[Rfam]
RNA: SAM riboswitch aptamer (S box leader)
RNA sequence: CGCUUAUAGAGAAAGGCAGAGGGAAUAGACCCGCUGAAGCCUUAGCAACCUGACACUGGUCAAGGUGCUACAUUCUACUCGGUUUAGCCCGGGAAAGAUAAGCU
Numbered sequence: 001c002g003c004u005u006a007u008a009g010a011g012a013a014a015g016g017c018a019g020a021g022g023g024a025a026u027a028g029a030c031c032c033g034c035u036g037a038a039g040c041c042u043u044a045g046c047a048a049c050c051u052g053a054c055a056c057u058g059g060u061c062a063a064g065g066u067g068c069u070a071c072a073u074u075c076u077a078c079u080c081g082g083u084u085u086a087g088c089c090c091g092g093g094a095a096a097g098a099u100a101a102g103c104u
Base pairs, nucleotide, nucleotide: 002103003102004101005100006099007098013043014042015041016040017039021032022031023030026077027076028075029074044069045068046067047066049065050064051062052061053060054059073096078093079092080091081090082089